[Rfam]
Archaeal small subunit ribosomal RNA: a 359-nucleotide part of an RNA from an uncultured archaeon. The base pairs follow the family's consensus structure, which is taken from published work.
RNA sequence: GGUCUAAAGGGUCUGUAGCCGGCCGGAUAAGUCUCUUGGGAAAUCUGGCAGCUUAACUGUCAGGCUUUCAGGGGAUACUGUCUGGCUCGAGGCCGGGAGAGGUGAGAGGUACUUCAGGGGUAGGGGUGAAAUCUUGUAAUCCUUGAAGGACCACCAGUGGCGAAGGCGUCUCACCAGAACGGACCUGACGGCAAGGGACGAAAGCUAGGGGCACGAACCGGAUUAGAUACCCGGGUAGUCCUAGCCGUAAACGAUACUCGCUAGGUGUCGGCCACGGUGCGACCGUUGUCGGUGCCGUAGGGAAGCCGUGAAGCGAGCCACCUGGGAAGUACGGCCGCAAGGCUGAAACUUAAAGGAAU
Numbered sequence: 001g002g003u004c005u006a007a008a009g010g011g012u013c014u015g016u017a018g019c020c021g022g023c024c025g026g027a028u029a030a031g032u033c034u035c036u037u038g039g040g041a042a043a044u045c046u047g048g049c050a051g052c053u054u055a056a057c058u059g060u061c062a063g064g065c066u067u068u069c070a071g072g073g074g075a076u077a078c079u080g081u082c083u084g085g086c087u088c089g090a091g092g093c094c095g096g097g098a099g100a101g102g103u104g105a106g107a108g109g110u111a112c113u114u115c116a117g118g119g120g121u122a123g124g125g126g127u128g129a130a131a132u133c134u135u136g137u138a139a140u141c142c143u144u145g146a147a148g149g150a151c152c153a154c155c156a157g158u159g160g161c162g163a164a165g166g167c168g169u170c171u172c173a174c175c176a177g178a179a180c181g182g183a184c185c186u187g188a189c190g191g192c193a194a195g196g197g198a199c200g201a202a203a204g205c206u207a208g209g210g211g212c213a214c215g216a217a218c219c220g221g222a223u224u225a226g227a228u229a230c231c232c233g234g235g236u237a238g239u240c241c242u243a244g245c246c247g248u249a250a251a252c253g254a255u256a257c258u259c260g261c262u263a264g265g266u267g268u269c270g271g272c273c274a275c276g277g278u279g280c281g282a283c284c285g286u287u288g289u290c291g292g293u294g295c296c297g298u299a300g301g302g303a304a305g306c307c308g309u310g311a312a313g314c315g316a317g318c319c320a321c322c323u324g325g326g327a328a329g330u331a332c333g334g335c336c337g338c339a340a341g342g343c344u345g346a347a348a349c350u351u352a353a354a355g356g357a358a359u
Stems, first nucleotide, its partner, number of pairs: 001322003009319001011199004016193001018192003022086007030079002032075009045063007090186003093182003101175007108152002112148008123134003160167002204245006213239002218234004257317005264296009274286004300307002324351003333344004
It is one of the family's seed sequences.